This 86-nucleotide RNA from Paenibacillus sp. FSL H8-0548 belongs to the Rfam family "c-di-GMP-I riboswitch aptamer". Pairs were carried over by alignment from the consensus structure, which is taken from published work.
RNA sequence: CCUAGAAAAAAGCAAAGUUGUCGAAAGACAAUGACGCAAAGCCAACAGGCCUAAAGGAAGUUUCCAAAGGUGGCUGGGUUGCCAAA
Number, nucleotide and partner (000 for none) at each position: 001c000002c000003u000004a000005g000006a000007a000008a000009a000010a000011a000012g037013c036014a000015a000016a000017g032018u031019u030020g029021u028022c027023g000024a000025a000026a000027g022028a021029c020030a019031a018032u017033g000034a000035c000036g013037c012038a000039a000040a080041g079042c078043c077044a000045a000046c076047a075048g074049g071050c070051c069052u000053a000054a000055a000056g065057g064058a063059a000060g000061u000062u000063u058064c057065c056066a000067a000068a000069g051070g050071u049072g000073g000074c048075u047076g046077g043078g042079u041080u040081g000082c000083c000084a000085a000086a000